Description: The record is a 96-nucleotide sequence from Thorsellia anophelis, which matches "Bacterial small signal recognition particle RNA" in Rfam. On this family, see Rosenblad et al., Nucleic Acids Res 2003: "SRPDB: Signal Recognition Particle Database". Rfam's curators write: The signal recognition particle (SRP) is a universally conserved ribonucleoprotein involved in the co-translational targeting of proteins to membranes. Taxonomically the source falls in Thorsellia anophelis (Bacteria, Pseudomonadati, Pseudomonadota, Gammaproteobacteria). It is annotated as a non-coding RNA gene.
RNA sequence: UAUUGGUUCUCUCGCAAUACUACUAUGUGAACUCGGUCAGGUCCGGAAGGAAGCAGCCGCAGCAUGGAACGUAUGUGCCGAGAUGCGCUGGUAGAG
Numbered sequence: 001u002a003u004u005g006g007u008u009c010u011c012u013c014g015c016a017a018u019a020c021u022a023c024u025a026u027g028u029g030a031a032c033u034c035g036g037u038c039a040g041g042u043c044c045g046g047a048a049g050g051a052a053g054c055a056g057c058c059g060c061a062g063c064a065u066g067g068a069a070c071g072u073a074u075g076u077g078c079c080g081a082g083a084u085g086c087g088c089u090g091g092u093a094g095a096g
Base pairs, nucleotide, nucleotide: 004090005089006088007087010083011082012081013080014079015075017074018073019072020071023067024066025065026064027063028062034059035058036057037056042051043050044049